[Rfam]
RNA: Flavo-1 RNA
RNA sequence: AUUGAGUUAGGGAUUGCAGCGGCAUCCUUUUUAUACUUUUCAAUAAAAAGAUAUAGCGUAAAGCCCGACUUUUU
Numbered sequence: 001a002u003u004g005a006g007u008u009a010g011g012g013a014u015u016g017c018a019g020c021g022g023c024a025u026c027c028u029u030u031u032u033a034u035a036c037u038u039u040u041c042a043a044u045a046a047a048a049a050g051a052u053a054u055a056g057c058g059u060a061a062a063g064c065c066c067g068a069c070u071u072u073u074u
Stems, first nucleotide, its partner, number of pairs: 010066003014062002019057002024052003030047005